[Rfam]
RNA sequence: ACCACUAAGCCAUCUCUCCAGCCCAAGAAAAAUAUUUUUAAAACCAAUUCAUGGGCUGGAGAGAUGGCUUAGUGGU
Number, nucleotide and partner (000 for none) at each position: 001a000002c075003c074004a073005c072006u071007a070008a069009g068010c067011c066012a065013u064014c063015u062016c061017u060018c059019c058020a057021g056022c055023c054024c053025a000026a000027g000028a000029a000030a000031a000032a000033u000034a000035u000036u000037u000038u000039u000040a000041a000042a000043a000044c000045c000046a000047a000048u000049u000050c000051a000052u000053g024054g023055g022056c021057u020058g019059g018060a017061g016062a015063g014064a013065u012066g011067g010068c009069u008070u007071a006072g005073u004074g003075g002076u000

The family of this 76-nucleotide RNA from Jaculus jaculus is "mir-3473 microRNA precursor family". Gene Ontology terms of the family: RISC complex, miRNA-mediated post-transcriptional gene silencing and cellular response to mechanical stimulus. The family's consensus secondary structure was predicted with RNAalifold.